[Rfam]
RNA: ASdes TB sRNA
Organism: Nocardia panacis
RNA sequence: AGCGCGACCGGGUCCACACCCCUGGUCACCACCAGGUAGUCGCGAAUCACCACGCUGUGCCGCAUCUC
Number, nucleotide and partner (000 for none) at each position: 001a000002g000003c000004g063005c062006g061007a000008c059009c000010g000011g030012g029013u028014c000015c000016a026017c025018a000019c000020c000021c000022c000023u000024g000025g017026u016027c000028a013029c012030c011031a000032c000033c000034a000035g056036g055037u054038a000039g000040u052041c000042g050043c000044g048045a000046a000047u000048c044049a000050c042051c000052a040053c000054g037055c036056u035057g000058u000059g008060c000061c006062g005063c004064a000065u000066c000067u000068c000